The family of this 50-nucleotide RNA sequence from Caviibacterium pharyngocola is "L31-Gammaproteobacteria ribosomal protein leader". The family's consensus secondary structure is taken from published work. By type it is a cis-regulatory leader. It scores 44 bits against the family's covariance model. NCBI's taxonomy places the organism under Bacteria, Pseudomonadati, Pseudomonadota, Gammaproteobacteria, Caviibacterium.
[Rfam]
RNA sequence: CACUCGGUGCCGAAUUCGGUUUCGGAGAGCGGAGUGGCUUCAAUCGAGGU
Numbered sequence: 001c002a003c004u005c006g007g008u009g010c011c012g013a014a015u016u017c018g019g020u021u022u023c024g025g026a027g028a029g030c031g032g033a034g035u036g037g038c039u040u041c042a043a044u045c046g047a048g049g050u
Stems, first nucleotide, its partner, number of pairs: 001036005007030002010025005